Description: int-alpA RNA: a 70-nucleotide RNA sequence from Candidatus Accumulibacter aalborgensis. It scores 60 bits against the family's covariance model. Rfam's curators write: Acidobacteria (1 example), Planctomycetes (1 example), Proteobacteria. NCBI's taxonomy places the organism under Bacteria, Pseudomonadati, Pseudomonadota, Betaproteobacteria, Candidatus Accumulibacter.
RNA sequence: GCCACGGAUAGGCCCGCGAACCGAAAAGCGGGACACCUUCACCCGCCUGCCGUGGCACCCCAAACGAAGG
Numbered sequence: 001g002c003c004a005c006g007g008a009u010a011g012g013c014c015c016g017c018g019a020a021c022c023g024a025a026a027a028g029c030g031g032g033a034c035a036c037c038u039u040c041a042c043c044c045g046c047c048u049g050c051c052g053u054g055g056c057a058c059c060c061c062a063a064a065c066g067a068a069g070g
Base pairs, nucleotide, nucleotide: 001056002055003054004053005052006051007050011022012021028046029045030044031043032042036070037069038068039067040066